[Rfam]
RNA sequence: CAAAAGGCUCUUUUAAGAGCCACUCCAUACACAAUAAAGGGAGCUGU
Dot-bracket structure: .....((((((....))))))..........................
The family of this 47-nucleotide RNA from Tricholaema leucomelas is "Histone 3' UTR stem-loop". Taxonomically the source falls in Tricholaema lacrymosa (Eukaryota, Metazoa, Archelosauria, Neoaves). A search with the family's covariance model found it, with a score of 42 bits. Rfam classes the family as a cis-regulatory element. From the family's description: The mRNAs of metazoan histone genes lack a poly-A tail. 3' end processing occurs at a site between a highly conserved stem-loop (modelled by this family) and a purine rich region around 20 nts downstream (the histone downstream element, or HDE). The stem-loop is bound by a 31 kDa stem-loop binding protein (SLBP - also termed the histone hairpin binding protein, or HBP). Together with U7 snRNA binding of the HDE, SLBP binding nucleate s the formation of the processing complex. The histone 3' UTR stem-loop is also involved in nucleocytoplasmic transport of the mRNA, and in stability regulation and translation efficiency in the cytoplasm.